[Rfam]
RNA sequence: UGUUGCCUCACAAUCCUUCUUCCCUGGCUAGCUUUAAGUCCCACGCCCUUUGCUAAAGCUGCCAGUUGAAGAGUUGUUGUGUGUAAC
Numbered sequence: 001u002g003u004u005g006c007c008u009c010a011c012a013a014u015c016c017u018u019c020u021u022c023c024c025u026g027g028c029u030a031g032c033u034u035u036a037a038g039u040c041c042c043a044c045g046c047c048c049u050u051u052g053c054u055a056a057a058g059c060u061g062c063c064a065g066u067u068g069a070a071g072a073g074u075u076g077u078u079g080u081g082u083g084u085a086a087c
Stems, first nucleotide, its partner, number of pairs: 005084002010080003017073006026063003030060007
RNA: mir-22 microRNA precursor family
Organism: Gouania willdenowi